[Rfam]
RNA sequence: UGGCAGUGAUGACAAAAAGGAUAUUUGGUUGAUUAUGAUUCUUAUUAAUGCCAUUUAAGGAUCAAAUUCUGAUGACCUUAUUUGUGCGUGUCUGAGCCAU
Numbered sequence: 001u002g003g004c005a006g007u008g009a010u011g012a013c014a015a016a017a018a019g020g021a022u023a024u025u026u027g028g029u030u031g032a033u034u035a036u037g038a039u040u041c042u043u044a045u046u047a048a049u050g051c052c053a054u055u056u057a058a059g060g061a062u063c064a065a066a067u068u069c070u071g072a073u074g075a076c077c078u079u080a081u082u083u084g085u086g087c088g089u090g091u092c093u094g095a096g097c098c099a100u
Stems, first nucleotide, its partner, number of pairs: 001099004
RNA: small nucleolar RNA snoR126
Organism: Sorghum bicolor